[Rfam]
RNA sequence: UAUUAAAAAUUUUAUCUAUUUAUACUAUUAAAAAUUGGUCUUCGUACGUCAACAGAUACAUAUGGAUGUCAUAUAUCAUUAUCCGGUUAUUCAGUCAAUUAUGUCGAUUUUUAACGGUACAAAUAGAUACAAUUUUUAACA
Numbered sequence: 001u002a003u004u005a006a007a008a009a010u011u012u013u014a015u016c017u018a019u020u021u022a023u024a025c026u027a028u029u030a031a032a033a034a035u036u037g038g039u040c041u042u043c044g045u046a047c048g049u050c051a052a053c054a055g056a057u058a059c060a061u062a063u064g065g066a067u068g069u070c071a072u073a074u075a076u077c078a079u080u081a082u083c084c085g086g087u088u089a090u091u092c093a094g095u096c097a098a099u100u101a102u103g104u105c106g107a108u109u110u111u112u113a114a115c116g117g118u119a120c121a122a123a124u125a126g127a128u129a130c131a132a133u134u135u136u137u138a139a140c141a
Stems, first nucleotide, its partner, number of pairs: 003139009013129004018124004023119004028114008